[Rfam]
RNA sequence: CAGGCCGGUCGGGUGACCGCGGCGCGCCUCGCGCGCGUCGAGGAAAGUCCGCACUCCAUAGAGCAAGAUGCCGGGUAACACCCGGGGCGGGGCAACCUGCCGGAUCGGGCCACAGAAACAUACCGCCCCUCGGGGUAAGGGUGAAAUGGUGGUGUAAGAGACCACCGGCGACCGCAGCAAUGCGGCGGCCAGGCAACCCCCAUCUGGAGCAAGGCCAAGCAGGUACAAAGCUCUCUUGUAGAGCGGGAGGCGGCUCGUCUUCCUUGAGUUCCGGGUAGGCUGCACGAGCGCGCCGGAGACGGCGCGCCUAGAGAGAUGGUCACCGAUGACAGAAUGCGGCUUAUAGAUCGACCUGAGUG
Number, nucleotide and partner (000 for none) at each position: 001c355002a354003g353004g352005c000006c350007g349008g348009u347010c346011g344012g324013g323014u322015g321016a320017c319018c318019g000020c040021g039022g038023c037024g036025c035026g034027c033028c000029u000030c000031g000032c000033g027034c026035g025036c024037g023038u022039c021040g020041a000042g000043g000044a000045a342046a341047g340048u000049c339050c338051g337052c336053a335054c209055u208056c207057c206058a000059u000060a000061g256062a255063g254064c253065a000066a205067g204068a203069u202070g201071c085072c084073g083074g082075g081076u000077a000078a000079c000080a000081c075082c074083c073084g072085g071086g000087g101088c099089g098090g097091g096092g000093c000094a000095a000096c091097c090098u089099g088100c000101c087102g200103g199104a000105u000106c000107g198108g197109g194110c193111c192112a000113c000114a000115g000116a000117a000118a000119c000120a000121u000122a000123c140124c139125g136126c135127c134128c133129c000130u000131c000132g000133g128134g127135g126136u125137a000138a000139g124140g123141g000142u000143g000144a000145a000146a000147u000148g166149g165150u164151g163152g162153u161154g000155u000156a000157a000158g000159a000160g000161a153162c152163c151164a150165c149166c148167g000168g189169c187170g186171a000172c185173c184174g183175c182176a181177g000178c000179a000180a000181u176182g175183c174184g173185g172186c170187g169188g000189c168190c000191a000192g111193g110194c109195a000196a000197c108198c107199c103200c102201c070202a069203u068204c067205u066206g057207g056208a055209g054210c000211a000212a000213g281214g280215c279216c278217a000218a000219g000220c000221a000222g272223g271224u000225a269226c268227a000228a000229a000230g000231c000232u000233c000234u000235c000236u000237u000238g000239u000240a000241g000242a000243g000244c000245g000246g000247g261248a260249g259250g258251c257252g000253g064254c063255u062256c061257g251258u250259c249260u248261u247262c000263c000264u000265u000266g000267a000268g226269u225270u000271c223272c222273g000274g000275g000276u000277a000278g216279g215280c214281u213282g000283c000284a000285c000286g000287a000288g307289c306290g305291c304292g303293c302294c301295g300296g000297a000298g000299a000300c295301g294302g293303c292304g291305c290306g289307c288308c000309u000310a000311g000312a000313g000314a000315g000316a000317u000318g018319g017320u016321c015322a014323c013324c012325g000326a000327u000328g000329a000330c000331a000332g000333a000334a000335u053336g052337c051338g050339g049340c047341u046342u045343a000344u011345a000346g010347a009348u008349c007350g006351a000352c004353c003354u002355g001356a000357g000358u000359g000
Bacterial RNase P class A: a 359-nucleotide RNA from Ornatilinea apprima. The family's RNA type in Rfam is ribozyme. The match comes from Rfam's covariance-model search (256 bits). The organism belongs to Ornatilinea, within Bacteria.